[Rfam]
Nucleotides: 077
Stems, first nucleotide, its partner, number of pairs: 007071002010068016028051005
Number, partner (000 for none) and nucleotide at each position: 001000u002000a003000u004000g005000a006000g007071a008070c009000a010068a011067c012066a013065u014064g015063c016062u017061u018060c019059u020058u021057u022056a023055u024054a025053u026000c027000c028051c029050c030049a031048u032047a033000u034000g035000g036000a037000u038000u039000a040000g041000g042000a043000u044000u045000g046000c047032u048031a049030u050029g051028g052000a053025a054024u055023g056022u057021a058020a059019g060018g061017a062016a063015g064014u065013g066012u067011g068010u069000g070008g071007u072000u073000u074000c075000a076000g077000g
Shown here is a 77-nucleotide sequence from Chloroceryle aenea, a member of the family "mir-1 microRNA precursor family". The family has 137 seed sequences and 4,474 matches in Rfam 15.1. The base pairs follow the family's consensus structure, which was predicted with RNAalifold. About the family: This family represents the microRNA (miRNA) mir-1 family. miRNAs are transcribed as ~70nt precursors (modelled here) and subsequently processed by the Dicer enzyme to give a ~22nt product. Gene Ontology terms of the family: RISC complex and miRNA-mediated post-transcriptional gene silencing.